Source information
Eukaryotic large subunit ribosomal RNA: a 428-nucleotide part of an RNA from Gallus gallus. A search with the family's covariance model found it, with a score of 2538 bits.
[Rfam]
RNA sequence: GAUGUGUUGUUGCGCUAGUAAUCCUGCUCAGUACGAGAGGAACCGCAGGUUCAGACAUUUGGUGUAUGUGCUUGGCUGAGGAGCCACUGGAGCGAGGCUACCAUCUGUGGGAUUAUGACUGAACGCCUCUAAGUCAGAAUCCCCCCUAAACGUAGCGAUACCGCAGCGCCGAGGCGCCUCGGUGGGCUCGCGAUAGCCGGCCGCCGCCCCCCUCGGGCGGGCGGUCGGUGCGGAGCGCCGCUCGUGGUCGGGACCGGAGCGCGGACAGAUGUGGCGCCGCCUCUCCCCCGCCGCGUACCGCAUGUUCGUGGGGAACCCGGUGCUAAAUCAUUCGUAGACGACCUGAUUCUGGGUCGGGGUUUCGUACGUAGCAGAGCAGCUCCCUCGCUGCGAUCUAUUGAGAGUCAGCCCUCGACACAAGCUUUUGU
Numbered sequence: 001g002a003u004g005u006g007u008u009g010u011u012g013c014g015c016u017a018g019u020a021a022u023c024c025u026g027c028u029c030a031g032u033a034c035g036a037g038a039g040g041a042a043c044c045g046c047a048g049g050u051u052c053a054g055a056c057a058u059u060u061g062g063u064g065u066a067u068g069u070g071c072u073u074g075g076c077u078g079a080g081g082a083g084c085c086a087c088u089g090g091a092g093c094g095a096g097g098c099u100a101c102c103a104u105c106u107g108u109g110g111g112a113u114u115a116u117g118a119c120u121g122a123a124c125g126c127c128u129c130u131a132a133g134u135c136a137g138a139a140u141c142c143c144c145c146c147u148a149a150a151c152g153u154a155g156c157g158a159u160a161c162c163g164c165a166g167c168g169c170c171g172a173g174g175c176g177c178c179u180c181g182g183u184g185g186g187c188u189c190g191c192g193a194u195a196g197c198c199g200g201c202c203g204c205c206g207c208c209c210c211c212c213u214c215g216g217g218c219g220g221g222c223g224g225u226c227g228g229u230g231c232g233g234a235g236c237g238c239c240g241c242u243c244g245u246g247g248u249c250g251g252g253a254c255c256g257g258a259g260c261g262c263g264g265a266c267a268g269a270u271g272u273g274g275c276g277c278c279g280c281c282u283c284u285c286c287c288c289c290g291c292c293g294c295g296u297a298c299c300g301c302a303u304g305u306u307c308g309u310g311g312g313g314a315a316c317c318c319g320g321u322g323c324u325a326a327a328u329c330a331u332u333c334g335u336a337g338a339c340g341a342c343c344u345g346a347u348u349c350u351g352g353g354u355c356g357g358g359g360u361u362u363c364g365u366a367c368g369u370a371g372c373a374g375a376g377c378a379g380c381u382c383c384c385u386c387g388c389u390g391c392g393a394u395c396u397a398u399u400g401a402g403a404g405u406c407a408g409c410c411c412u413c414g415a416c417a418c419a420a421g422c423u424u425u426u427g428u
Stems, first nucleotide, its partner, number of pairs: 006159008016148003021051001023049005052107004060100003067094003071090001073086005109143003116136005168321004173316001325426003331345001334342001351418001353416004357411003361404002368398004373394001376391005